[Rfam]
RNA: 7SK RNA
Organism: Myotis lucifugus
RNA sequence: GGAUGUGAGGGAGAUCUGGCUGUGACAUCUGUCACGCCAUUGAUCGCCAGGGUUGAUUCGGCUGAUCUGGCUGGCUAGGUGGGUGUCCCCCUCCUCCCUCACCGAUCCAUGUGGGUCCCUCCCGAAGCUGCAGGCUCGGUCGAAGAGGAUGACCUUCCCCCCCCAGGUGAGGACCGGUCUUCGGUCAAGGGUAUACGAGUAGCUGCGCUCCCCUGCUAGAACCUCCAAAGAAGCUCUCAAGGUCCAUUUGUAGGAGAAUGUAGGGUAGUCAAGCUUCCAAGACUCCAGACACAUCCAAAUGAGGCGCUGCACGUGGCAGAGUGCCUUCCUUU
Numbered sequence: 001g002g003a004u005g006u007g008a009g010g011g012a013g014a015u016c017u018g019g020c021u022g023u024g025a026c027a028u029c030u031g032u033c034a035c036g037c038c039a040u041u042g043a044u045c046g047c048c049a050g051g052g053u054u055g056a057u058u059c060g061g062c063u064g065a066u067c068u069g070g071c072u073g074g075c076u077a078g079g080u081g082g083g084u085g086u087c088c089c090c091c092u093c094c095u096c097c098c099u100c101a102c103c104g105a106u107c108c109a110u111g112u113g114g115g116u117c118c119c120u121c122c123c124g125a126a127g128c129u130g131c132a133g134g135c136u137c138g139g140u141c142g143a144a145g146a147g148g149a150u151g152a153c154c155u156u157c158c159c160c161c162c163c164c165a166g167g168u169g170a171g172g173a174c175c176g177g178u179c180u181u182c183g184g185u186c187a188a189g190g191g192u193a194u195a196c197g198a199g200u201a202g203c204u205g206c207g208c209u210c211c212c213c214u215g216c217u218a219g220a221a222c223c224u225c226c227a228a229a230g231a232a233g234c235u236c237u238c239a240a241g242g243u244c245c246a247u248u249u250g251u252a253g254g255a256g257a258a259u260g261u262a263g264g265g266u267a268g269u270c271a272a273g274c275u276u277c278c279a280a281g282a283c284u285c286c287a288g289a290c291a292c293a294u295c296c297a298a299a300u301g302a303g304g305c306g307c308u309g310c311a312c313g314u315g316g317c318a319g320a321g322u323g324c325c326u327u328c329c330u331u332u
Stems, first nucleotide, its partner, number of pairs: 001108003005102007013093002018090002024087010035074001037070003042067004046062003116172002118169001120167002122139004127135002142160001147158003202274003208268002211265006223256004229251001231249003297332003301327005307319004